[Rfam]
Annotation: A member of the RNA family "Small nucleolar RNA snoR74" from Tripterygium wilfordii, 129 nucleotides long. By type it is an H/ACA-box small nucleolar RNA. Its family is annotated with nucleolus and RNA processing in the Gene Ontology.
RNA sequence: GAAAAAGCAGUGGCCUGUUGCCAUUGUGAACUGGUCUCUCGUAAACUUCAGGGAAAUCGCUUGAAUUGUUAUUGGGUGAACCCGUGUUUGAUUCUGGUAACUAAAGGUUCAGUAAACGAUACGACAUUC
Number, nucleotide and partner (000 for none) at each position: 001g000002a000003a000004a000005a048006a047007g046008c000009a000010g000011u000012g036013g000014c034015c033016u000017g031018u000019u000020g000021c000022c000023a000024u000025u000026g000027u000028g000029a000030a000031c017032u000033g015034g014035u000036c012037u000038c000039u000040c000041g000042u000043a000044a000045a000046c007047u006048u005049c000050a000051g000052g000053g000054a000055a000056a000057u000058c000059g000060c000061u000062u000063g000064a000065a120066u119067u118068g117069u116070u115071a000072u000073u000074g000075g000076g000077u111078g110079a109080a108081c107082c106083c000084g000085u000086g000087u000088u000089u000090g000091a000092u000093u000094c000095u000096g000097g000098u000099a000100a000101c000102u000103a000104a000105a000106g082107g081108u080109u079110c078111a077112g000113u000114a000115a070116a069117c068118g067119a066120u065121a000122c000123g000124a000125c000126a000127u000128u000129c000